[Rfam]
RNA sequence: AUGACUACAGGGGGAGAGACUACAUCAGUAGCGCCGAAGGAGCAAGCAUAUGAUAUGUGAAUCUCUCAGGCAAAAAGACCCUUGUGUGACG
Dot-bracket structure: .....((((((((......((((....)))).(((((..(((...((.........))....))))).))).......)))))))).....
Source information: A member of the RNA family "Glycine riboswitch aptamer" from Thalassobacillus cyri, 91 nucleotides long. The source organism's lineage runs through Bacteria, Bacillati, Bacillota, Bacillaceae and Thalassobacillus. It scores 71 bits against the family's covariance model. The pairing is the family consensus, mapped onto this sequence. The family has 44 seed sequences and 9,425 matches in Rfam 15.1.